[Rfam]
Source information: A member of the RNA family "MIR535 microRNA precursor family" from Zingiber officinale, 97 nucleotides long. The match comes from Rfam's covariance-model search (69 bits). Its family is annotated with miRNA-mediated post-transcriptional gene silencing and RISC complex in the Gene Ontology. A reference for the family is Zeng et al. (2010), "Conservation and divergence of microRNAs and their functions in Euphorbiaceous plants", Nucleic Acids Res.
RNA sequence: GGCCAUGGUUGACAACGAGAGAGAGCACGCCGGUCCUCGGUCCAUACUGGAUACUAUGGUCUUGUACUAGCGUGCUCUUUCUCGUUGUCAUCCGGUU
Dot-bracket structure: .........(((((.((..((.(.((((((.(((...............................))).)))))).).))..)).))))).......
Numbered sequence: 001g002g003c004c005a006u007g008g009u010u011g012a013c014a015a016c017g018a019g020a021g022a023g024a025g026c027a028c029g030c031c032g033g034u035c036c037u038c039g040g041u042c043c044a045u046a047c048u049g050g051a052u053a054c055u056a057u058g059g060u061c062u063u064g065u066a067c068u069a070g071c072g073u074g075c076u077c078u079u080u081c082u083c084g085u086u087g088u089c090a091u092c093c094g095g096u097u
Stems, first nucleotide, its partner, number of pairs: 010090005016084002020080002023077001025075006032068003